[Rfam]
RNA sequence: AAGACCCUGUCGCUCUCGAAGGCUCAAGUUCCACUUGGGGCACGUCGCAAGACAUAGUGAGCACGGGGUUUU
Numbered sequence: 001a002a003g004a005c006c007c008u009g010u011c012g013c014u015c016u017c018g019a020a021g022g023c024u025c026a027a028g029u030u031c032c033a034c035u036u037g038g039g040g041c042a043c044g045u046c047g048c049a050a051g052a053c054a055u056a057g058u059g060a061g062c063a064c065g066g067g068g069u070u071u072u
Stems, first nucleotide, its partner, number of pairs: 001072010012062004017057001021041001023039007
This 72-nucleotide RNA sequence from Novipirellula galeiformis belongs to the Rfam family "DUF3800-VIII RNA". The family's consensus secondary structure is taken from published work. Taxonomically the source falls in Novipirellula (Bacteria, Pseudomonadati, Pirellulales, Pirellulaceae). It scores 51 bits against the family's covariance model. By type it is a small RNA.